The family of this 122-nucleotide sequence from Pipistrellus kuhlii is "mir-9261 microRNA precursor family". Rfam 15.1 lists 196 matches to the family in 3 species.
[Rfam]
RNA sequence: AACAAUUUGUCCCGUGUCCCGAGGCGUUUUUAAAAAGUCCCGAUUUUUGGAAAGAUUGGAAAGAUUCUUUCCAAAAAUUGGGACUUUUUUAAAACGCCUCGGGACACGGGACAAAUUGUUAA
Numbered sequence: 001a002a003c004a005a006u007u008u009g010u011c012c013c014g015u016g017u018c019c020c021g022a023g024g025c026g027u028u029u030u031u032a033a034a035a036a037g038u039c040c041c042g043a044u045u046u047u048u049g050g051a052a053a054g055a056u057u058g059g060a061a062a063g064a065u066u067c068u069u070u071c072c073a074a075a076a077a078u079u080g081g082g083a084c085u086u087u088u089u090u091a092a093a094a095c096g097c098c099u100c101g102g103g104a105c106a107c108g109g110g111a112c113a114a115a116u117u118g119u120u121a122a
Stems, first nucleotide, its partner, number of pairs: 001120030032089020